[Rfam]
RNA sequence: GUUGCUUCAUUAUGGUGAAAUCUCUCUAAAACUUAAGUGAGAGAUGUUCUAGUUUUUGAAGCACAAAUGAUUAGUUGGGUGUUAACAACCUGGUACAUUUCAGUUGCACUUAGUUACUUGUUUUCUUGAUAAGUCU
Numbered sequence: 001g002u003u004g005c006u007u008c009a010u011u012a013u014g015g016u017g018a019a020a021u022c023u024c025u026c027u028a029a030a031a032c033u034u035a036a037g038u039g040a041g042a043g044a045u046g047u048u049c050u051a052g053u054u055u056u057u058g059a060a061g062c063a064c065a066a067a068u069g070a071u072u073a074g075u076u077g078g079g080u081g082u083u084a085a086c087a088a089c090c091u092g093g094u095a096c097a098u099u100u101c102a103g104u105u106g107c108a109c110u111u112a113g114u115u116a117c118u119u120g121u122u123u124u125c126u127u128g129a130u131a132a133g134u135c136u
Stems, first nucleotide, its partner, number of pairs: 003063006017049003021044005074130004078125002087115003092110003
The record is a 136-nucleotide RNA from Solanum lycopersicum, which matches "small nucleolar RNA snoR137" in Rfam. Pairs were carried over by alignment from the consensus structure, which was predicted with RNAalifold. A search with the family's covariance model found it, with a score of 58 bits. On this family, see Chen and Wu, Nucleic Acids Res 2009: "Mining small RNA sequencing data: a new approach to identify small nucleolar RNAs in Arabidopsis". The family's RNA type in Rfam is H/ACA-box small nucleolar RNA.